Record summary: This 125-nucleotide sequence from Brassica napus belongs to the Rfam family "MIR9563 microRNA precursor family". The match comes from Rfam's covariance-model search (103 bits). Its family is annotated with miRNA-mediated post-transcriptional gene silencing and RISC complex in the Gene Ontology. The organism belongs to Brassica, within Eukaryota. Pairs were carried over by alignment from the consensus structure, which was predicted with RNAalifold. The family has 2 seed sequences and 5,832 matches in Rfam 15.1.
RNA sequence: GGAAGUUAAGCAACUGUUUCUUAACUUUUAACUAAAAAAACUAAGAAUCGGUUUUAAAAUCCUUAUUUAAGAACCAGUUCUUACUUUUUUUUAGUUAAAAGUUAAGAAACAGUUUCUUAACUUCC
Numbered sequence: 001g002g003a004a005g006u007u008a009a010g011c012a013a014c015u016g017u018u019u020c021u022u023a024a025c026u027u028u029u030a031a032c033u034a035a036a037a038a039a040a041c042u043a044a045g046a047a048u049c050g051g052u053u054u055u056a057a058a059a060u061c062c063u064u065a066u067u068u069a070a071g072a073a074c075c076a077g078u079u080c081u082u083a084c085u086u087u088u089u090u091u092u093a094g095u096u097a098a099a100a101g102u103u104a105a106g107a108a109a110c111a112g113u114u115u116c117u118u119a120a121c122u123u124c125c
Stems, first nucleotide, its partner, number of pairs: 001125010012114028042083006